RNA sequence: GGGCUGGCUUUAGCUCAGCGGUUACUUCAGUCUAUUGGCCAGACUUUCUCCGCCCUCUCGAGGGUGGUUCGAGACCUGCGGGCGCUCUCCAGCCCUUUU
Numbered sequence: 001g002g003g004c005u006g007g008c009u010u011u012a013g014c015u016c017a018g019c020g021g022u023u024a025c026u027u028c029a030g031u032c033u034a035u036u037g038g039c040c041a042g043a044c045u046u047u048c049u050c051c052g053c054c055c056u057c058u059c060g061a062g063g064g065u066g067g068u069u070c071g072a073g074a075c076c077u078g079c080g081g082g083c084g085c086u087c088u089c090c091a092g093c094c095c096u097u098u099u
Stems, first nucleotide, its partner, number of pairs: 002094006013083004018079004026073003030069001

The record is a 99-nucleotide sequence from Orycteropus afer, which matches "Vault RNA" in Rfam. About the family: This family of RNAs are found as part of the enigmatic vault ribonucleoprotein complex. Lineage of the source: Eukaryota > Chordata > Theria > Eutheria > Orycteropus afer. It scores 84 bits against the family's covariance model.